RNA sequence: GAGCUAUGAGGAAGAUACUAAUGCAGUCUGAGAUAUCACUGAUGACUAAGAUCCAACUCUGAGCUCACUGUCUUG
Number, nucleotide and partner (000 for none) at each position: 001g066002a065003g064004c063005u000006a000007u000008g000009a000010g000011g000012a000013a000014g000015a000016u000017a000018c000019u000020a000021a000022u000023g000024c000025a000026g000027u000028c000029u000030g000031a000032g000033a000034u000035a000036u000037c000038a000039c000040u000041g000042a000043u000044g000045a000046c000047u000048a000049a000050g000051a000052u000053c000054c000055a000056a000057c000058u000059c000060u000061g000062a000063g004064c003065u002066c001067a000068c000069u000070g000071u000072c000073u000074u000075g000
This 75-nucleotide sequence from Chelydra serpentina belongs to the Rfam family "Small nucleolar RNA SNORD19". The source organism's lineage runs through Eukaryota, Chordata, Archelosauria, Cryptodira and Chelydra. Rfam classes the family as a C/D-box small nucleolar RNA. A search with the family's covariance model found it, with a score of 59 bits. On this family, see Huttenhofer et al., EMBO J 2001: "RNomics: an experimental approach that identifies 201 candidates for novel, small, non-messenger RNAs in mouse".